[Rfam]
RNA sequence: CUGCACUGAUGAUUGUAGAUGGAAGUGACCUGGCACUGGUGGCCUAUGGUUCUCCUUUGGCCAGGAAAUGACUUGGUUAAUCUUCUCUCUGAGCAG
Numbered sequence: 001c002u003g004c005a006c007u008g009a010u011g012a013u014u015g016u017a018g019a020u021g022g023a024a025g026u027g028a029c030c031u032g033g034c035a036c037u038g039g040u041g042g043c044c045u046a047u048g049g050u051u052c053u054c055c056u057u058u059g060g061c062c063a064g065g066a067a068a069u070g071a072c073u074u075g076g077u078u079a080a081u082c083u084u085c086u087c088u089c090u091g092a093g094c095a096g
Base pairs, nucleotide, nucleotide: 003094004093038055039054041052
The family of this 96-nucleotide sequence from Gouania willdenowi is "Z30 small nucleolar RNA".
It scores 69 bits against the family's covariance model.
Rfam classes the family as a C/D-box small nucleolar RNA.
The organism belongs to Gouania, within Eukaryota.